Rfam assigns this 295-nucleotide RNA sequence from Marchantia polymorpha to the family "Plant signal recognition particle RNA".
It scores 132 bits against the family's covariance model.
Pairs were carried over by alignment from the consensus structure, which is taken from published work.
The family is grouped with related families in Rfam's "SRP clan".
The family's RNA type in Rfam is non-coding RNA gene.
[Rfam]
RNA sequence: UCUGGGCAGCGUAGCGGCUGCCUGUAACCCGAGCGGGAGUAAGAGAGAUGGAGCUGGGGCUCUUGCCAAGGACCGCGGGGAUCAUGUGGAAGGCACGUCCACUUGAAGCGUGGGGAGUCUCUGUCCUGGGCUCCUCCGCGGAAGCGAGAGGGGUCUGGGUGGAUAAUGUGGAAGGUAAAGCGUGAGGCGGGCGACCGAGCAACGAUCACUAUCCGCUCUGCGCAGUCGAGGGACAGCGUGCUUGAAUGUUUGCCGGCCAUCAUCCGAUGCUAGCAGUCUUCAGCAACUUCUCUCU
Numbered sequence: 001u002c003u004g005g006g007c008a009g010c011g012u013a014g015c016g017g018c019u020g021c022c023u024g025u026a027a028c029c030c031g032a033g034c035g036g037g038a039g040u041a042a043g044a045g046a047g048a049u050g051g052a053g054c055u056g057g058g059g060c061u062c063u064u065g066c067c068a069a070g071g072a073c074c075g076c077g078g079g080g081a082u083c084a085u086g087u088g089g090a091a092g093g094c095a096c097g098u099c100c101a102c103u104u105g106a107a108g109c110g111u112g113g114g115g116a117g118u119c120u121c122u123g124u125c126c127u128g129g130g131c132u133c134c135u136c137c138g139c140g141g142a143a144g145c146g147a148g149a150g151g152g153g154u155c156u157g158g159g160u161g162g163a164u165a166a167u168g169u170g171g172a173a174g175g176u177a178a179a180g181c182g183u184g185a186g187g188c189g190g191g192c193g194a195c196c197g198a199g200c201a202a203c204g205a206u207c208a209c210u211a212u213c214c215g216c217u218c219u220g221c222g223c224a225g226u227c228g229a230g231g232g233a234c235a236g237c238g239u240g241c242u243u244g245a246a247u248g249u250u251u252g253c254c255g256g257c258c259a260u261c262a263u264c265c266g267a268u269g270c271u272a273g274c275a276g277u278c279u280u281c282a283g284c285a286a287c288u289u290c291u292c293u294c295u
Stems, first nucleotide, its partner, number of pairs: 002039002004023007028037003042295007050287001053284005058278004067266001070258002073255001075253003080249001085245001091243008099232002102230005108223004114219005121162006128156009137146003170213002173210002179206001181204003188197003